[Rfam]
RNA sequence: AAACUUGUUUUAUUCGUGAAAUAAAUAGAAAAAGGAGAAUUGAGAAAUCUCUGUAUGGCCAACUUGUGGGAGUGAACCUUCUGCUAAAAACCAUCAAAUUGCGGGAACACCCUAAAGAGAUUUCAACCAAUCGAAUAUGGUAACAUAUUCGUGGCACAGGUAAUGACUCGUGGUAUGGUAAUAUCGAAAUUUAUGUACGAAAGGAAAUGGGUAAUCCGCAGCCAAGCACCUGACCUAUAAGACAGGUGUGCAGUUCAUCGACUAAAUGUUGGUUGGUACGAAUAAAUACUUUAUGUUUUCGUGCUUAAAAUAUAGUCAAACCCUACUCGAAAGAGUACA
Numbered sequence: 001a002a003a004c005u006u007g008u009u010u011u012a013u014u015c016g017u018g019a020a021a022u023a024a025a026u027a028g029a030a031a032a033a034g035g036a037g038a039a040u041u042g043a044g045a046a047a048u049c050u051c052u053g054u055a056u057g058g059c060c061a062a063c064u065u066g067u068g069g070g071a072g073u074g075a076a077c078c079u080u081c082u083g084c085u086a087a088a089a090a091c092c093a094u095c096a097a098a099u100u101g102c103g104g105g106a107a108c109a110c111c112c113u114a115a116a117g118a119g120a121u122u123u124c125a126a127c128c129a130a131u132c133g134a135a136u137a138u139g140g141u142a143a144c145a146u147a148u149u150c151g152u153g154g155c156a157c158a159g160g161u162a163a164u165g166a167c168u169c170g171u172g173g174u175a176u177g178g179u180a181a182u183a184u185c186g187a188a189a190u191u192u193a194u195g196u197a198c199g200a201a202a203g204g205a206a207a208u209g210g211g212u213a214a215u216c217c218g219c220a221g222c223c224a225a226g227c228a229c230c231u232g233a234c235c236u237a238u239a240a241g242a243c244a245g246g247u248g249u250g251c252a253g254u255u256c257a258u259c260g261a262c263u264a265a266a267u268g269u270u271g272g273u274u275g276g277u278a279c280g281a282a283u284a285a286a287u288a289c290u291u292u293a294u295g296u297u298u299u300c301g302u303g304c305u306u307a308a309a310a311u312a313u314a315g316u317c318a319a320a321c322c323c324u325a326c327u328c329g330a331a332a333g334a335g336u337a338c339a
Base pairs, nucleotide, nucleotide: 005033006032008030009029010028011027012026013025036050037049038048089274090273091272092271093270095268096267100220101219102218103217104216105215110211111210112209221254222253226249227248228247229246258318260317261316262315263314264313276304277303278302279301280300281299282298284296324337325336326335327334328333
Group I catalytic intron: a 339-nucleotide sequence from Diplodia corticola. The family's consensus secondary structure is taken from published work. A search with the family's covariance model found it, with a score of 104 bits. Lineage of the source: Eukaryota > leotiomyceta > dothideomyceta > Botryosphaeriaceae > Diplodia. From the family's description: Group I catalytic introns are large self-splicing ribozymes. They catalyse their own excision from mRNA, tRNA and rRNA precursors in a wide range of organisms. The core secondary structure consists of 9 paired regions (P1-P9).